The family of this 80-nucleotide RNA from Paenibacillus albiflavus is "ZMP/ZTP riboswitch aptamer (pfl RNA motif)". Taxonomically the source falls in Paenibacillus (Bacteria, Bacillota, Bacilli, Caryophanales).
RNA sequence: UAUCCUCUAUGUAACUGGCGACGGAGUGGGUAACCACAAUGGAGCAUAGAGGAUUGCGGCCGGUCGCCUGGGCAUAAGAG
Numbered sequence: 001u002a003u004c005c006u007c008u009a010u011g012u013a014a015c016u017g018g019c020g021a022c023g024g025a026g027u028g029g030g031u032a033a034c035c036a037c038a039a040u041g042g043a044g045c046a047u048a049g050a051g052g053a054u055u056g057c058g059g060c061c062g063g064u065c066g067c068c069u070g071g072g073c074a075u076a077a078g079a080g
Base pairs, nucleotide, nucleotide: 003053004052005051006050007049008048009047010046011045012044015041017068018067019066020065021064026037027036028035029034059073060072061071
Pairs were carried over by alignment from the consensus structure, which is taken from published work.
The match comes from Rfam's covariance-model search (59 bits).